[Rfam]
RNA sequence: GCCCGCAUGGCUUAGUGGUACAGCGUCGCACUCGUACGAGGAAAUUGCCAAUGCGAAGAUCCCUAGUUCGAUUCUGGGUGUGGGCA
Numbered sequence: 001g002c003c004c005g006c007a008u009g010g011c012u013u014a015g016u017g018g019u020a021c022a023g024c025g026u027c028g029c030a031c032u033c034g035u036a037c038g039a040g041g042a043a044a045u046u047g048c049c050a051a052u053g054c055g056a057a058g059a060u061c062c063c064u065a066g067u068u069c070g071a072u073u074c075u076g077g078g079u080g081u082g083g084g085c086a
Base pairs, nucleotide, nucleotide: 001085002084003083004082005081006080007079010024011023012022026056027055028054029053030052062078063077064076065075066074

Annotation
Rfam assigns this 86-nucleotide RNA sequence from Diplodia corticola to the family "tRNA". Transfer RNA (tRNA) molecules are approximately 80 nucleotides in length. Their secondary structure includes four short double-helical elements and three loops (D, anti-codon, and T loops). Further hydrogen bonds mediate the characteristic L-shaped molecular structure. tRNAs have two regions of fundamental functional importance: the anti-codon, which is responsible for specific mRNA codon recognition, and the 3' end, to which the tRNAs corresponding amino acid is attached (by aminoacyl-tRNA synthetases). tRNAs cope with the degeneracy of the genetic code in two manners: having more than one tRNA (with a specific anti-codon) for a particular amino acid; and 'wobble' base-pairing, i.e. permitting non-standard base-pairing at the 3rd anti-codon position. It is annotated as a transfer RNA. The match comes from Rfam's covariance-model search (52 bits). The family's consensus secondary structure is taken from published work.